Shown here is a 67-nucleotide RNA from Lingula anatina, a member of the family "Small nucleolar RNA SNORD42".
The base pairs follow the family's consensus structure, which was predicted with PFOLD.
It scores 40 bits against the family's covariance model.
snoRNA U42 is found in intron 3 of the ribosomal protein L23a (RPL23a) gene in humans and is also present in mice.
Its family is annotated with nucleolus and RNA processing in the Gene Ontology.
Lineage of the source: Eukaryota > Spiralia > Lophotrochozoa > Lingulata > Lingula.

RNA sequence: GUGCAGAUGAUGGAAAUGUUAAAUCUGAUGUCUUUGAAGAAACUCAUCUAAGGAACCUCUGAUGCAC
Numbered sequence: 001g002u003g004c005a006g007a008u009g010a011u012g013g014a015a016a017u018g019u020u021a022a023a024u025c026u027g028a029u030g031u032c033u034u035u036g037a038a039g040a041a042a043c044u045c046a047u048c049u050a051a052g053g054a055a056c057c058u059c060u061g062a063u064g065c066a067c
Stems, first nucleotide, its partner, number of pairs: 001067005